[Rfam]
RNA sequence: CCCUGUAUCGAAAGUGGUCGUGGCGUGAUUGUUGCCAGAUCAUUGAUAUUGCAGGAAGAGUGAACUGAAAGUCUUUCCCGUGUUUGCUGGAUCCCCUGUUCCUGACAAACCCUGUAUCUUUCAGACA
Numbered sequence: 001c002c003c004u005g006u007a008u009c010g011a012a013a014g015u016g017g018u019c020g021u022g023g024c025g026u027g028a029u030u031g032u033u034g035c036c037a038g039a040u041c042a043u044u045g046a047u048a049u050u051g052c053a054g055g056a057a058g059a060g061u062g063a064a065c066u067g068a069a070a071g072u073c074u075u076u077c078c079c080g081u082g083u084u085u086g087c088u089g090g091a092u093c094c095c096c097u098g099u100u101c102c103u104g105a106c107a108a109a110c111c112c113u114g115u116a117u118c119u120u121u122c123a124g125a126c127a
Base pairs, nucleotide, nucleotide: 002055003054004053005052006051007050008048013044014043015042016041017040018039019038022036023035024034025033066123067122068121069120070119071118082110083109084108085107086106087104089102090101091100